Small nucleolar RNA SNORA25: a 125-nucleotide RNA from Molossus molossus. Lineage of the source: Eukaryota > Bilateria > Sarcopterygii > Molossidae > Molossus. The family's consensus secondary structure was predicted with RNAfold. Rfam links the family to the GO terms RNA processing and nucleolus. Rfam classes the family as an H/ACA-box small nucleolar RNA. The match comes from Rfam's covariance-model search (101 bits).
[Rfam]
RNA sequence: AGGUCAUUUCAAAGAGAGCUUAUGGGGCCAAAUCCAGGAUCUCUUAAUGCUGAGACCUAAGAUAAAGUUCUCCAUAGGAUGUAUUAGACACUCAGGAGUGCUGUGUUUCCUUAGGAGAUAUAAGG
Numbered sequence: 001a002g003g004u005c006a007u008u009u010c011a012a013a014g015a016g017a018g019c020u021u022a023u024g025g026g027g028c029c030a031a032a033u034c035c036a037g038g039a040u041c042u043c044u045u046a047a048u049g050c051u052g053a054g055a056c057c058u059a060a061g062a063u064a065a066a067g068u069u070c071u072c073c074a075u076a077g078g079a080u081g082u083a084u085u086a087g088a089c090a091c092u093c094a095g096g097a098g099u100g101c102u103g104u105g106u107u108u109c110c111u112u113a114g115g116a117g118a119u120a121u122a123a124g125g
Base pairs, nucleotide, nucleotide: 002057003056004055005054007052014045015044016043017042018041020039021038023037026035027034069118070117071116072115073114076111077110078109079108085103086102087101089100090099091098092097